The record is an 86-nucleotide RNA sequence from Cebus imitator, which matches "mir-590 microRNA precursor family" in Rfam. Gene Ontology terms of the family: miRNA-mediated post-transcriptional gene silencing and RISC complex. The match comes from Rfam's covariance-model search (94 bits).
RNA sequence: AGCCAAUCAGAAGUGAGCUUAUUCAUAAAAGUGCAGUAUGGUCCAGUCAGUCUGUGAUUUUAUGUGUAGGCUAGUCUCUGACUGAA
Numbered sequence: 001a002g003c004c005a006a007u008c009a010g011a012a013g014u015g016a017g018c019u020u021a022u023u024c025a026u027a028a029a030a031g032u033g034c035a036g037u038a039u040g041g042u043c044c045a046g047u048c049a050g051u052c053u054g055u056g057a058u059u060u061u062a063u064g065u066g067u068a069g070g071c072u073a074g075u076c077u078c079u080g081a082c083u084g085a086a
Base pairs, nucleotide, nucleotide: 004084005083007081008080009079010078011077013075014074016072017071018070019069020068021067022066024064025063026062027061028060029059030058032056033055034054035053036052